[Rfam]
RNA sequence: GCCGAGCUUAGUAACUCAAGCUUAUAACCCAAGUGGGGGCACCAAAGUGUUGGAACGCUGGCUCAGCUAUAGCGGGUCGGGUCAUGCUUGGCUAUGUUCUGGCCCGCCCGUUCCAAGCAAGGAGUCGGGUCAUGUGUCUUGGGCGAAGGCUCUGGGUCACAUGGUCCUUAGACAGGAGGGCAAAGCGUGAGGCUGGUUUCACAGAGCAGCGACAACCUCCCUCUCCUUGCAGUGGAAGGAUAACGGGUCGGAGCCAACUUGACCCAACAUGAGCUGCUAGGCUUGGCCAAUUGAACCAACAUUUUU
Numbered sequence: 001g002c003c004g005a006g007c008u009u010a011g012u013a014a015c016u017c018a019a020g021c022u023u024a025u026a027a028c029c030c031a032a033g034u035g036g037g038g039g040c041a042c043c044a045a046a047g048u049g050u051u052g053g054a055a056c057g058c059u060g061g062c063u064c065a066g067c068u069a070u071a072g073c074g075g076g077u078c079g080g081g082u083c084a085u086g087c088u089u090g091g092c093u094a095u096g097u098u099c100u101g102g103c104c105c106g107c108c109c110g111u112u113c114c115a116a117g118c119a120a121g122g123a124g125u126c127g128g129g130u131c132a133u134g135u136g137u138c139u140u141g142g143g144c145g146a147a148g149g150c151u152c153u154g155g156g157u158c159a160c161a162u163g164g165u166c167c168u169u170a171g172a173c174a175g176g177a178g179g180g181c182a183a184a185g186c187g188u189g190a191g192g193c194u195g196g197u198u199u200c201a202c203a204g205a206g207c208a209g210c211g212a213c214a215a216c217c218u219c220c221c222u223c224u225c226c227u228u229g230c231a232g233u234g235g236a237a238g239g240a241u242a243a244c245g246g247g248u249c250g251g252a253g254c255c256a257a258c259u260u261g262a263c264c265c266a267a268c269a270u271g272a273g274c275u276g277c278u279a280g281g282c283u284u285g286g287c288c289a290a291u292u293g294a295a296c297c298a299a300c301a302u303u304u305u306u
Stems, first nucleotide, its partner, number of pairs: 001040003004023006011016001028037003044305010056293002059290001061288001062286002065283003070279006077272002079265006086258001088257004093253001099251008108239002111237005117230008127167010138156004142151003175220005186211003193204003

Rfam assigns this 306-nucleotide RNA from Prunus avium to the family "Plant signal recognition particle RNA". The family's consensus secondary structure is taken from published work. NCBI's taxonomy places the organism under Eukaryota, eudicotyledons, Pentapetalae, fabids, Prunus. The family's RNA type in Rfam is non-coding RNA gene.